Shown here is a 130-nucleotide RNA from Sporomusaceae bacterium FL31, a member of the family "c-di-AMP riboswitch aptamer (ydaO/yuaA leader)". It scores 106 bits against the family's covariance model.
Nucleotides: 130
Base pairs, nucleotide, nucleotide: 011116012115013114014113018029019028020027030111031110032109033108034107035106040048041047049096050095051094057070058069059068060067073090074089075088076087
Number, partner (000 for none) and nucleotide at each position: 001000a002000u003000a004000u005000a006000u007000a008000c009000c010000a011116c012115g013114c014113c015000g016000a017000a018029u019028u020027u021000c022000u023000c024000u025000u026000g027020a028019a029018a030111g031110c032109g033108g034107a035106g036000g037000a038000a039000c040048c041047a042000u043000a044000c045000u046000c047041u048040g049096g050095g051094g052000u053000g054000a055000a056000a057070u058069u059068a060067c061000u062000u063000u064000u065000u066000a067060g068059u069058a070057a071000u072000g073090g074089g075088g076087a077000u078000u079000a080000u081000c082000c083000u084000u085000u086000g087076u088075c089074c090073c091000u092000a093000a094051c095050c096049c097000g098000u099000c100000a101000g102000c103000u104000a105000a106035c107034u108033u109032c110031g111030u112000a113014g114013g115012c116011g117000a118000a119000a120000a121000g122000a123000a124000a125000g126000g127000a128000a129000g130000u